Overview: The family of this 61-nucleotide RNA from Tyrannus savana is "Small nucleolar RNA Z39". The match comes from Rfam's covariance-model search (53 bits). A reference for the family is Chen et al. (2003), "The high diversity of snoRNAs in plants: identification and comparative study of 120 snoRNA genes from Oryza sativa", Nucleic Acids Res.
RNA sequence: GCGUGUGUGAUGUGGCAAAACAGGAUAAGAGCCUGUGAUGCUGUAAAUGCUUUCUGAUGUG
Numbered sequence: 001g002c003g004u005g006u007g008u009g010a011u012g013u014g015g016c017a018a019a020a021c022a023g024g025a026u027a028a029g030a031g032c033c034u035g036u037g038a039u040g041c042u043g044u045a046a047a048u049g050c051u052u053u054c055u056g057a058u059g060u061g
Stems, first nucleotide, its partner, number of pairs: 002061004012053001014051003021043003025039002